The record is a 370-nucleotide RNA from Roseibium aggregatum, which matches "Alphaproteobacteria transfer-messenger RNA" in Rfam.
[Rfam]
RNA sequence: CCUCUUUCAAUUCAAGACCGAAGACCUUAUAUCAGGGCUGCUGGUUCGCCAGCUAUGGCAAUAAAUGGUCAGUGAAAUAAACCUAUCGGACCCGGGGGCGGUACCCGGCGCCUCCACCCAAGCCCAUGGGGCUAAGCUUCAGAAACUCCAUGGGUUUCGGCGGGGGCGAAAUAGGAUCGACGAGGGCGUAAAGACUGUGCUUUUGCUCGGCAUUGUACCACCGUUAUCGGGCUUUCUUAAUAGUUGCAAAUGACAACUAUGCUAUGGACAACGCUGUCGCAGCGUAACGCUGCGCCGGUAGUCCACUAAGUCCUUUGAGGUAGCACUCACGGGCGGGGUUCGGAGGCACCUGGCAACAGAAGCCUCCACU
Numbered sequence: 001c002c003u004c005u006u007u008c009a010a011u012u013c014a015a016g017a018c019c020g021a022a023g024a025c026c027u028u029a030u031a032u033c034a035g036g037g038c039u040g041c042u043g044g045u046u047c048g049c050c051a052g053c054u055a056u057g058g059c060a061a062u063a064a065a066u067g068g069u070c071a072g073u074g075a076a077a078u079a080a081a082c083c084u085a086u087c088g089g090a091c092c093c094g095g096g097g098g099c100g101g102u103a104c105c106c107g108g109c110g111c112c113u114c115c116a117c118c119c120a121a122g123c124c125c126a127u128g129g130g131g132c133u134a135a136g137c138u139u140c141a142g143a144a145a146c147u148c149c150a151u152g153g154g155u156u157u158c159g160g161c162g163g164g165g166g167c168g169a170a171a172u173a174g175g176a177u178c179g180a181c182g183a184g185g186g187c188g189u190a191a192a193g194a195c196u197g198u199g200c201u202u203u204u205g206c207u208c209g210g211c212a213u214u215g216u217a218c219c220a221c222c223g224u225u226a227u228c229g230g231g232c233u234u235u236c237u238u239a240a241u242a243g244u245u246g247c248a249a250a251u252g253a254c255a256a257c258u259a260u261g262c263u264a265u266g267g268a269c270a271a272c273g274c275u276g277u278c279g280c281a282g283c284g285u286a287a288c289g290c291u292g293c294g295c296c297g298g299u300a301g302u303c304c305a306c307u308a309a310g311u312c313c314u315u316u317g318a319g320g321u322a323g324c325a326c327u328c329a330c331g332g333g334c335g336g337g338g339u340u341c342g343g344a345g346g347c348a349c350c351u352g353g354c355a356a357c358a359g360a361a362g363c364c365u366c367c368a369c370u
Stems, first nucleotide, its partner, number of pairs: 040053005057207005068200002070197004082186002086183003092108005109168007208223003215232001218230002336351004342367006

Source information
It is one of the family's seed sequences. NCBI's taxonomy places the organism under Bacteria, Alphaproteobacteria, Stappiaceae, Roseibium, Roseibium aggregatum.